This 75-nucleotide RNA from Cucumis sativus belongs to the Rfam family "Small nucleolar RNA Z102/R77". The family is grouped with related families in Rfam's "SNORD44 clan". By type it is a C/D-box small nucleolar RNA. The base pairs follow the family's consensus structure, which was predicted with PFOLD.
RNA sequence: GAAUGAUGUGAGGAACAUUUUUGUUUUGAUUGCUGUGAUGAUGGCAAUUUUUGUAUUAGCUCUAUCUGAUCAUUC
Numbered sequence: 001g002a003a004u005g006a007u008g009u010g011a012g013g014a015a016c017a018u019u020u021u022u023g024u025u026u027u028g029a030u031u032g033c034u035g036u037g038a039u040g041a042u043g044g045c046a047a048u049u050u051u052u053g054u055a056u057u058a059g060c061u062c063u064a065u066c067u068g069a070u071c072a073u074u075c
Stems, first nucleotide, its partner, number of pairs: 002074004031046004